[Rfam]
RNA: Group II catalytic intron D1-D4-4
RNA sequence: CUACCGGUGAAAAGUCCGGUCGAGGUAAGAGCCAAGUCGCCUCGUAGCUGACGGGCGGUUGGUGGAGAAAUCCUAAGGCUAAAGCCCCGUAACAAAGUAACCCUCUCGGGAGUGCGAGCAAAUCAGCAGGCCGUAACAUCG
Numbered sequence: 001c002u003a004c005c006g007g008u009g010a011a012a013a014g015u016c017c018g019g020u021c022g023a024g025g026u027a028a029g030a031g032c033c034a035a036g037u038c039g040c041c042u043c044g045u046a047g048c049u050g051a052c053g054g055g056c057g058g059u060u061g062g063u064g065g066a067g068a069a070a071u072c073c074u075a076a077g078g079c080u081a082a083a084g085c086c087c088c089g090u091a092a093c094a095a096a097g098u099a100a101c102c103c104u105c106u107c108g109g110g111a112g113u114g115c116g117a118g119c120a121a122a123u124c125a126g127c128a129g130g131c132c133g134u135a136a137c138a139u140c141g
Base pairs, nucleotide, nucleotide: 021044022043023042024041025040051090052089053088054087055086057080058079059078060077065072066071097115098114100113101112103110118134119133